[Rfam]
RNA sequence: CUGGAUUGAGUAGCGCAUGGACCAGGCUUGAGGAGGAGGCCUGGUUGACGAGGAGGAGGCUGUUCGGAGCAUCAGCGGGGAGCCUCCAGGGCCGAUCACAGCCCUGAGAAGUGGGUCGACAAAACCAGGUGGUAACGCCGGGGACAAUAUACUCACAGUGAGCAAG
Numbered sequence: 001c002u003g004g005a006u007u008g009a010g011u012a013g014c015g016c017a018u019g020g021a022c023c024a025g026g027c028u029u030g031a032g033g034a035g036g037a038g039g040c041c042u043g044g045u046u047g048a049c050g051a052g053g054a055g056g057a058g059g060c061u062g063u064u065c066g067g068a069g070c071a072u073c074a075g076c077g078g079g080g081a082g083c084c085u086c087c088a089g090g091g092c093c094g095a096u097c098a099c100a101g102c103c104c105u106g107a108g109a110a111g112u113g114g115g116u117c118g119a120c121a122a123a124a125c126c127a128g129g130u131g132g133u134a135a136c137g138c139c140g141g142g143g144a145c146a147a148u149a150u151a152c153u154c155a156c157a158g159u160g161a162g163c164a165a166g
Base pairs, nucleotide, nucleotide: 020046021045022044023043024042025041026040027039029037055087056086057085058084059083064075066073067072088105089104090103091102092101111156112155113154114153115152116151125142126141128139129138130137131136
Dot-bracket structure: ...................((((((((.(.......).))))))))........(((((....(.((....)).).......)))))(((((........))))).....((((((........((.((((....)))).))........))))))..........